[Rfam]
RNA sequence: AGAUUAAGUCAGCUUAAUCCAGCGUAUUGCGUAACGCUGGAGCGGAGGAACCACAUUGUGGGGCGUAUCUCCUAGAAAGUGGCAAAUUAAGAGUCAAGGUUAAGGAAUUAGAAAGUACUUAACUAGCAAGCACUCAGCACUUUUAAGAGAGGGGCAUCUCUCAGCCCUAGCCCGUCAGCUAACUUCGUAGGCAUUGAGGGGAGACUGA
Numbered sequence: 001a002g003a004u005u006a007a008g009u010c011a012g013c014u015u016a017a018u019c020c021a022g023c024g025u026a027u028u029g030c031g032u033a034a035c036g037c038u039g040g041a042g043c044g045g046a047g048g049a050a051c052c053a054c055a056u057u058g059u060g061g062g063g064c065g066u067a068u069c070u071c072c073u074a075g076a077a078a079g080u081g082g083c084a085a086a087u088u089a090a091g092a093g094u095c096a097a098g099g100u101u102a103a104g105g106a107a108u109u110a111g112a113a114a115g116u117a118c119u120u121a122a123c124u125a126g127c128a129a130g131c132a133c134u135c136a137g138c139a140c141u142u143u144u145a146a147g148a149g150a151g152g153g154g155c156a157u158c159u160c161u162c163a164g165c166c167c168u169a170g171c172c173c174g175u176c177a178g179c180u181a182a183c184u185u186c187g188u189a190g191g192c193a194u195u196g197a198g199g200g201g202a203g204a205c206u207g208a
Stems, first nucleotide, its partner, number of pairs: 012192003018041008042188006052060002061173003069149003152167004
A member of the RNA family "c-di-AMP riboswitch aptamer (ydaO/yuaA leader)" from Cylindrospermum sp. NIES-4074, 208 nucleotides long. The organism belongs to Cylindrospermum, within Bacteria. The match comes from Rfam's covariance-model search (70 bits).